This 93-nucleotide sequence from Lepisosteus oculatus belongs to the Rfam family "Small nucleolar SNORD12/SNORD106". The organism belongs to Lepisosteus, within Eukaryota. The family's consensus secondary structure was predicted with RNAalifold. Its family is annotated with RNA processing and nucleolus in the Gene Ontology. A reference for the family is Vitali et al. (2003), "Identification of 13 novel human modification guide RNAs", Nucleic Acids Res. The family is grouped with related families in Rfam's "SNORD12 clan".

RNA sequence: GCUGGUACAAGUAUGAUGACUAAGCUUUUUUCCCCAGCAGAUCGAUAGUGUUGACUCUUUUGCACUGUAAGCCAAAUGUUCUGAUUGACCAGC
Numbered sequence: 001g002c003u004g005g006u007a008c009a010a011g012u013a014u015g016a017u018g019a020c021u022a023a024g025c026u027u028u029u030u031u032c033c034c035c036a037g038c039a040g041a042u043c044g045a046u047a048g049u050g051u052u053g054a055c056u057c058u059u060u061u062g063c064a065c066u067g068u069a070a071g072c073c074a075a076a077u078g079u080u081c082u083g084a085u086u087g088a089c090c091a092g093c
Stems, first nucleotide, its partner, number of pairs: 001093006009085001